[Rfam]
RNA sequence: UUUACAGAGUUUAUUGGCAUUCUGUCCACCUCCUCUUGUCCAGAUUUUGUUUUGUGCAGAAUUUUUGUUUGCUGAAGAGGUGGGCAUACUGCCAACUGGGUUUUGUUAG
Numbered sequence: 001u002u003u004a005c006a007g008a009g010u011u012u013a014u015u016g017g018c019a020u021u022c023u024g025u026c027c028a029c030c031u032c033c034u035c036u037u038g039u040c041c042a043g044a045u046u047u048u049g050u051u052u053u054g055u056g057c058a059g060a061a062u063u064u065u066u067g068u069u070u071g072c073u074g075a076a077g078a079g080g081u082g083g084g085c086a087u088a089c090u091g092c093c094a095a096c097u098g099g100g101u102u103u104u105g106u107u108a109g
Stems, first nucleotide, its partner, number of pairs: 011099001014095006023086010
Dot-bracket structure: ..........(..((((((...((((((((((............................................))))))))))...))))))...)..........

Rfam assigns this 109-nucleotide sequence from Dorcoceras hygrometricum to the family "MIR394 microRNA precursor family". It scores 84 bits against the family's covariance model. Gene Ontology terms of the family: RISC complex and miRNA-mediated post-transcriptional gene silencing. The source organism's lineage runs through Eukaryota, Viridiplantae, Euphyllophyta, Mesangiospermae and Dorcoceras. The literature on the family includes a 2004 paper in Mol Cell by Jones-Rhoades and Bartel, "Computational identification of plant microRNAs and their targets, including a stress-induced miRNA".